Shown here is a 358-nucleotide part of an RNA from Thermoplasmatales archaeon SCGC AB-539-N05, a member of the family "Archaeal large subunit ribosomal RNA". Taxonomically the source falls in Thermoplasmatales (Archaea, Methanobacteriati, Thermoplasmatota, Thermoplasmata). Gene Ontology terms of the family: ribosome and structural constituent of ribosome. Its Rfam clan is "LSU clan".
RNA sequence: CGGUGUAAUUCAGGCGAGGGAACUCGGCAAAUUAGCCCUGUACCUUAGGUAGAAGGGGUGCCUGCUCUGAGAGAGAGCAGGUCACAGUGACAAGGGGGCUCCGACUGUUUAAUAAAAACACAGGUGACCGCAAGUCCGAAAGGAUGUGUAUGGUCGCUGAAUUCUGCCCAGUGGCGGUAUCUGAAAACCCCGUUCAAGGGGGAGAAGGACCGUUAAACGGCGGGGGUAACUCUGACCCUCUUAAGGUAACGUAAUACCUUGCCGCUUAAUUGGCGGCUUGCAUGAAUGGAGCAACGAGAGCCCUACUGUCCCCGCCUGAAAGCCGGUGAAAUUGACUUACUGGCGCACAGUCCAGUAC
Numbered sequence: 001c002g003g004u005g006u007a008a009u010u011c012a013g014g015c016g017a018g019g020g021a022a023c024u025c026g027g028c029a030a031a032u033u034a035g036c037c038c039u040g041u042a043c044c045u046u047a048g049g050u051a052g053a054a055g056g057g058g059u060g061c062c063u064g065c066u067c068u069g070a071g072a073g074a075g076a077g078c079a080g081g082u083c084a085c086a087g088u089g090a091c092a093a094g095g096g097g098g099c100u101c102c103g104a105c106u107g108u109u110u111a112a113u114a115a116a117a118a119c120a121c122a123g124g125u126g127a128c129c130g131c132a133a134g135u136c137c138g139a140a141a142g143g144a145u146g147u148g149u150a151u152g153g154u155c156g157c158u159g160a161a162u163u164c165u166g167c168c169c170a171g172u173g174g175c176g177g178u179a180u181c182u183g184a185a186a187a188c189c190c191c192g193u194u195c196a197a198g199g200g201g202g203a204g205a206a207g208g209a210c211c212g213u214u215a216a217a218c219g220g221c222g223g224g225g226g227u228a229a230c231u232c233u234g235a236c237c238c239u240c241u242u243a244a245g246g247u248a249a250c251g252u253a254a255u256a257c258c259u260u261g262c263c264g265c266u267u268a269a270u271u272g273g274c275g276g277c278u279u280g281c282a283u284g285a286a287u288g289g290a291g292c293a294a295c296g297a298g299a300g301c302c303c304u305a306c307u308g309u310c311c312c313c314g315c316c317u318g319a320a321a322g323c324c325g326g327u328g329a330a331a332u333u334g335a336c337u338u339a340c341u342g343g344c345g346c347a348c349a350g351u352c353c354a355g356u357a358c
Stems, first nucleotide, its partner, number of pairs: 001325004009320008018311003035059005044049001060082009083087001095304007102296002106120003123158008131148001134145004162290003166221003171218002173214005180209003188201004222240006241245001261277006339356005